[Rfam]
Shown here is a 170-nucleotide sequence from Streptomyces sp. UH6, a member of the family "c-di-AMP riboswitch aptamer (ydaO/yuaA leader)".
RNA sequence: UCGCGUCAUGCGCCGCAGGCAGGAGCGGGGGAACCAGGUAGGCGCCGGGCCCGGUGGACAGUUCGCCGGGACCGGCUAGGGGUGAAGCCGCGUACCGGAAGGUGCGCGGCCGGGCGACCCUCAUAGCCCGAACCCGACAGCUCACCUCGCAGGCGUCGGUGAGGGGAUAC
Dot-bracket structure: ..........((((..........((((((....(...........................................)(((.....(((((((((....)))))))))..((((..........))))...))).........)))))).))))...............